[Rfam]
RNA sequence: UAAUAUAAUAAAUGUAAACUUGAAGUGGGUGGAUAAGGGUAUUGCAAACCCGCCCCUCAUGAUUACCUAUAAAGCACCUAAGACGUGGUUAAACGAUAGCUUAGCCAUUUCAAUUAGUAACAGUUAAUAGUGUUACCAACUAGAGAAAAAAAUCUAGGGUGGAGGUAAUCAUGGAAAUUAGCUUGAGGAUUUAGGGUAGCCACGGACUGGCUAACCACAAUACUAUACCCGUAGUUAAAUCGCCUUGAACAAGCGAAUGACCCAAAGCGGGAGGUCUCAUUAAGGUAGUUACCGAUGAAGCGUGGUAACACGUGUAUAACAGUCCAGUGGUGUAUGAGUAGCUAACGGUAUUUAAAUUUACAAGUUAUGUAUAUUACAAUCUAUGCUUACGCUUAGUGAAAGUUGGUGGGUACCGAUCCCAGCCCAGCCUUGGCCAUUUGCUAUCAGAGCUGUUUGUUGACGAACAAAUAGUAAGCCUGAUAGGUGCUGUCACCUAAUAAAGUCUGUUUGCUGAUAUUCCACGUAAACCAAUACGCAAGUUUAUAA
Number, nucleotide and partner (000 for none) at each position: 001u000002a000003a000004u000005a000006u000007a000008a000009u000010a000011a000012a000013u000014g000015u000016a000017a000018a000019c000020u545021u000022g000023a000024a000025g058026u000027g056028g055029g054030u000031g000032g000033a000034u000035a000036a000037g051038g050039g049040u048041a000042u000043u000044g000045c000046a000047a000048a040049c039050c038051c037052g000053c000054c029055c028056c027057u000058c025059a000060u000061g170062a169063u168064u167065a166066c165067c000068u000069a000070u000071a000072a000073a000074g000075c000076a000077c000078c000079u000080a000081a114082g111083a110084c000085g000086u107087g106088g105089u104090u103091a102092a101093a000094c099095g000096a000097u000098a000099g094100c000101u092102u091103a090104g089105c088106c087107a086108u000109u000110u083111c082112a000113a000114u081115u138116a000117g136118u135119a134120a133121c132122a131123g128124u000125u000126a000127a000128u123129a000130g000131u122132g121133u120134u119135a118136c117137c000138a115139a000140c000141u000142a000143g153144a000145g000146a000147a000148a000149a000150a000151a000152a000153u143154c000155u000156a000157g000158g000159g000160u000161g000162g000163a000164g000165g066166u065167a064168a063169u062170c061171a000172u000173g000174g000175a000176a542177a515178u514179u513180a512181g511182c510183u000184u000185g000186a000187g000188g000189a000190u000191u502192u501193a000194g000195g000196g494197u000198a000199g331200c330201c329202a328203c000204g325205g324206a323207c322208u321209g320210g289211c288212u287213a286214a000215c285216c284217a000218c000219a000220a000221u000222a000223c000224u000225a000226u000227a000228c271229c270230c269231g268232u267233a000234g261235u260236u259237a258238a000239a000240u000241c255242g254243c253244c000245u000246u000247g277248a000249a275250c000251a000252a000253g243254c242255g241256a000257a000258u237259g236260a235261c234262c000263c000264a000265a000266a000267g232268c231269g230270g229271g228272a000273g000274g000275u249276c000277u247278c000279a000280u000281u000282a000283a000284g216285g215286u213287a212288g211289u210290u350291a349292c348293c347294g346295a000296u000297g000298a000299a000300g313301c312302g311303u310304g309305g000306u000307a000308a000309c304310a303311c302312g301313u300314g000315u000316a000317u000318a000319a000320c209321a208322g207323u206324c205325c204326a000327g000328u202329g201330g200331u199332g000333u000334a000335u402336g000337a000338g000339u000340a000341g397342c396343u395344a394345a393346c294347g293348g292349u291350a290351u000352u000353u000354a000355a000356a000357u000358u000359u000360a000361c000362a000363a000364g000365u000366u000367a000368u000369g000370u000371a000372u000373a000374u000375u000376a000377c000378a000379a000380u000381c000382u000383a000384u000385g476386c475387u474388u473389a000390c000391g000392c000393u345394u344395a343396g342397u341398g000399a000400a000401a000402g335403u000404u000405g000406g423407u422408g420409g419410g000411u000412a000413c000414c000415g000416a000417u000418c000419c409420c408421a000422g407423c406424c000425c489426a488427g487428c000429c000430u000431u000432g000433g000434c000435c000436a000437u000438u000439u486440g000441c483442u482443a481444u480445c479446a478447g000448a000449g472450c471451u000452g469453u468454u467455u466456g465457u464458u463459g000460a000461c000462g000463a458464a457465c456466a455467a454468a453469u452470a000471g450472u449473a388474a387475g386476c385477c000478u446479g445480a444481u443482a442483g441484g000485u000486g439487c427488u426489g425490u000491c000492a000493c000494c196495u000496a000497a000498u000499a000500a000501a192502g191503u000504c000505u000506g000507u000508u000509u000510g182511c181512u180513g179514a178515u177516a000517u000518u000519c000520c000521a000522c000523g000524u000525a000526a541527a540528c539529c000530a000531a000532u000533a000534c000535g000536c000537a000538a000539g528540u527541u526542u176543a000544u000545a020546a000

A member of the RNA family "ROOL RNA" from Hopescreekvirus LfeInf, 546 nucleotides long. About the family: Firmicutes, Fusobacteria (1 example), Tenericutes (1 example). Lineage of the source: Viruses > Duplodnaviria > Heunggongvirae > Caudoviricetes > Hopescreekvirus LfeInf.